[Rfam]
RNA sequence: GGGCACCUACGGGGGCCUAUACCCGGCGCAUCGCGCCCAAACAUAGCCCCUCCAACCUGGGGCAGAGCUAACGGAAGACAGAAA
Numbered sequence: 001g002g003g004c005a006c007c008u009a010c011g012g013g014g015g016c017c018u019a020u021a022c023c024c025g026g027c028g029c030a031u032c033g034c035g036c037c038c039a040a041a042c043a044u045a046g047c048c049c050c051u052c053c054a055a056c057c058u059g060g061g062g063c064a065g066a067g068c069u070a071a072c073g074g075a076a077g078a079c080a081g082a083a084a
Stems, first nucleotide, its partner, number of pairs: 001018004006014003027059002033047002